[Rfam]
RNA: FMN riboswitch aptamer (RFN element)
RNA sequence: ACGCGCUGGCGGGACUCGGUGUAACUCCGAACCGACGGUGAUCCGGGCGAUCUUUCCCGGUAAGCCCGUGACCCGGCCCCGGCCGGUGGACCUGGUGCGAGUCCGGGGCCGACGGUUGGCGACGCGGCGACGCGACGCCAGACAGUCCGGAUGGGAGUCGGCGCGA
Numbered sequence: 001a002c003g004c005g006c007u008g009g010c011g012g013g014a015c016u017c018g019g020u021g022u023a024a025c026u027c028c029g030a031a032c033c034g035a036c037g038g039u040g041a042u043c044c045g046g047g048c049g050a051u052c053u054u055u056c057c058c059g060g061u062a063a064g065c066c067c068g069u070g071a072c073c074c075g076g077c078c079c080c081g082g083c084c085g086g087u088g089g090a091c092c093u094g095g096u097g098c099g100a101g102u103c104c105g106g107g108g109c110c111g112a113c114g115g116u117u118g119g120c121g122a123c124g125c126g127g128c129g130a131c132g133c134g135a136c137g138c139c140a141g142a143c144a145g146u147c148c149g150g151a152u153g154g155g156a157g158u159c160g161g162c163g164c165g166a
Base pairs, nucleotide, nucleotide: 003164004163005162006161007160008159009158010157017029018028019027033111034110035069036068037067038066064109065108073086074085091107092106093105094104095103113149114148115147